[Rfam]
The record is a 140-nucleotide RNA from Methylobacterium gnaphalii, which matches "Alphaproteobacterial sRNA BjrC1505" in Rfam.
The base pairs follow the family's consensus structure.

RNA sequence: GCUGAAACGAUUGAUUAACCUUUCCAGACGAUGAUCACCACAUGUCCAGCCUGCUGGAUGUCGAGUGGGUCCUGUCCACUCUGUUUGAUGCCUCUCUUUUCGACUUCGUGAUAGCCGUCCCUUGGGGCGGCUUUUUUUCU
Numbered sequence: 001g002c003u004g005a006a007a008c009g010a011u012u013g014a015u016u017a018a019c020c021u022u023u024c025c026a027g028a029c030g031a032u033g034a035u036c037a038c039c040a041c042a043u044g045u046c047c048a049g050c051c052u053g054c055u056g057g058a059u060g061u062c063g064a065g066u067g068g069g070u071c072c073u074g075u076c077c078a079c080u081c082u083g084u085u086u087g088a089u090g091c092c093u094c095u096c097u098u099u100u101c102g103a104c105u106u107c108g109u110g111a112u113a114g115c116c117g118u119c120c121c122u123u124g125g126g127g128c129g130g131c132u133u134u135u136u137u138u139c140u
Stems, first nucleotide, its partner, number of pairs: 002009001011033001016031001020027002044059004063081006087100002090097001110135002113132008
A reference for the family is Madhugiri et al. (2012), "Small RNAs of the Bradyrhizobium/Rhodopseudomonas lineage and their analysis", RNA Biol.